The record is an 85-nucleotide RNA sequence from Microbacterium ulmi, which matches "ZMP/ZTP riboswitch aptamer (pfl RNA motif)" in Rfam. The family's consensus secondary structure is taken from published work.
Nucleotides: 085
Stems, first nucleotide, its partner, number of pairs: 003053001006050001008048005015041002017073005026037004062080002065077002
Number, partner (000 for none) and nucleotide at each position: 001000u002000c003053g004000a005000a006050c007000c008048g009047u010046c011045g012044c013000g014000a015041c016040u017073g018072g019071c020070g021069u022000u023000g024000a025000g026037g027036u028035g029034g030000g031000c032000a033000c034029c035028c036027a037026c038000c039000g040016g041015g042000g043000a044012g045011c046010g047009a048008c049000c050006g051000a052000c053003u054000a055000c056000g057000g058000c059000a060000u061000u062080c063079g064000a065077c066076c067000g068000c069021a070020c071019g072018c073017c074000u075000g076066g077065g078000c079063c080062g081000a082000u083000g084000u085000u